[Rfam]
RNA sequence: UAUAUUUGCCCGUCUAAUAAUCAAAUUAUUAGCUACAUAAUAAUUAUUUACAAUAAUAUUGGCAUG
Numbered sequence: 001u002a003u004a005u006u007u008g009c010c011c012g013u014c015u016a017a018u019a020a021u022c023a024a025a026u027u028a029u030u031a032g033c034u035a036c037a038u039a040a041u042a043a044u045u046a047u048u049u050a051c052a053a054u055a056a057u058a059u060u061g062g063c064a065u066g
Stems, first nucleotide, its partner, number of pairs: 014032006
Dot-bracket structure: .............((((((.......))))))..................................